[Rfam]
RNA sequence: CCCUGCCUGUAGGGGUGUCCUCCGCGGAGGGCUGAGAUUGCGGCGCGUUACGGCUGCUCGACCCUUCGAACCUGAAACGGAUCAUGCCGACGAAGGAAACAGCAGGCGCACAUCU
Numbered sequence: 001c002c003c004u005g006c007c008u009g010u011a012g013g014g015g016u017g018u019c020c021u022c023c024g025c026g027g028a029g030g031g032c033u034g035a036g037a038u039u040g041c042g043g044c045g046c047g048u049u050a051c052g053g054c055u056g057c058u059c060g061a062c063c064c065u066u067c068g069a070a071c072c073u074g075a076a077a078c079g080g081a082u083c084a085u086g087c088c089g090a091c092g093a094a095g096g097a098a099a100c101a102g103c104a105g106g107c108g109c110a111c112a113u114c115u
Stems, first nucleotide, its partner, number of pairs: 007102004011065004017032005040057004071096003078089003
Shown here is a 115-nucleotide RNA from Cephaloticoccus capnophilus, a member of the family "TPP riboswitch aptamer (THI element)". A search with the family's covariance model found it, with a score of 63 bits. The organism belongs to Cephaloticoccus, within Bacteria. Its family is annotated with thiamine pyrophosphate binding in the Gene Ontology.